[Rfam]
RNA sequence: AGGUUCCGAGCUGGAGAGAGGCGAGCCCCCGUGGCCGCCCACCGAAGGGGCAAGCGGUCUUUAUCGCCAAUCUCUCAGGUAAAGCGGACAGCAAGGGCAAG
Numbered sequence: 001a002g003g004u005u006c007c008g009a010g011c012u013g014g015a016g017a018g019a020g021g022c023g024a025g026c027c028c029c030c031g032u033g034g035c036c037g038c039c040c041a042c043c044g045a046a047g048g049g050g051c052a053a054g055c056g057g058u059c060u061u062u063a064u065c066g067c068c069a070a071u072c073u074c075u076c077a078g079g080u081a082a083a084g085c086g087g088a089c090a091g092c093a094a095g096g097g098c099a100a101g
Stems, first nucleotide, its partner, number of pairs: 006096002010092004020039004041080003044076002048074003054067002
Dot-bracket structure: .....((..((((......((((............)))).(((((..(((...((..........))....))))).)))........))))..)).....

The family of this 101-nucleotide RNA sequence from Inhella gelatinilytica is "Glycine riboswitch aptamer". Rfam's curators write: This family represents the bacterial glycine riboswitch.